Rfam assigns this 70-nucleotide RNA from Microtus ochrogaster to the family "mir-344 microRNA precursor family". For this family Rfam cites "Mammalian microRNAs: experimental evaluation of novel and previously annotated genes" (Chiang et al., Genes Dev, 2010). A search with the family's covariance model found it, with a score of 54 bits. NCBI's taxonomy places the organism under Eukaryota, Chordata, Dipnotetrapodomorpha, Eutheria, Microtus. The family's consensus secondary structure was predicted with RNAalifold.
[Rfam]
RNA sequence: UUUACUGUCAGGCUGUGGCUAGAUCAGCUACCAGCUGAUAGCUGGACUCUAGCCAGAGCCUGACUGCUAA
Numbered sequence: 001u002u003u004a005c006u007g008u009c010a011g012g013c014u015g016u017g018g019c020u021a022g023a024u025c026a027g028c029u030a031c032c033a034g035c036u037g038a039u040a041g042c043u044g045g046a047c048u049c050u051a052g053c054c055a056g057a058g059c060c061u062g063a064c065u066g067c068u069a070a
Stems, first nucleotide, its partner, number of pairs: 007064003011060004016055008024038005